A member of the RNA family "HNH endonuclease-associated RNA and ORF (HEARO) RNA", 224 nucleotides long.
Rfam 15.1 lists 952 matches to the family in 249 species.
RNA sequence: GUUUAAUCCUCUUGCCUAUUCUACUCCGAAUAUGGCAUUUCUUGGGUCUUCUCAAGAAAUAUUAAACUAGAUUAAGCAUUCAAUUGCUACAUUGAUUAUCUCAUGACACCUCCGAAUGAUGCCCUAGUUUGGAGCAACUGUCGCUAUACUUUAAAAGAACCUAGGAGAAGGAACGGUGAGUAUAGCCUAACAAGGAUUUUCAAUAUUAUCGAAGGGCAAAUAAC
Numbered sequence: 001g002u003u004u005a006a007u008c009c010u011c012u013u014g015c016c017u018a019u020u021c022u023a024c025u026c027c028g029a030a031u032a033u034g035g036c037a038u039u040u041c042u043u044g045g046g047u048c049u050u051c052u053c054a055a056g057a058a059a060u061a062u063u064a065a066a067c068u069a070g071a072u073u074a075a076g077c078a079u080u081c082a083a084u085u086g087c088u089a090c091a092u093u094g095a096u097u098a099u100c101u102c103a104u105g106a107c108a109c110c111u112c113c114g115a116a117u118g119a120u121g122c123c124c125u126a127g128u129u130u131g132g133a134g135c136a137a138c139u140g141u142c143g144c145u146a147u148a149c150u151u152u153a154a155a156a157g158a159a160c161c162u163a164g165g166a167g168a169a170g171g172a173a174c175g176g177u178g179a180g181u182a183u184a185g186c187c188u189a190a191c192a193a194g195g196a197u198u199u200u201c202a203a204u205a206u207u208a209u210c211g212a213a214g215g216g217c218a219a220a221u222a223a224c
Stems, first nucleotide, its partner, number of pairs: 001067007042055005070210003074206001075088004091204005098197004106141002110134008120218006143186009155177001157174001160171003

Rfam classes the family as a non-coding RNA gene.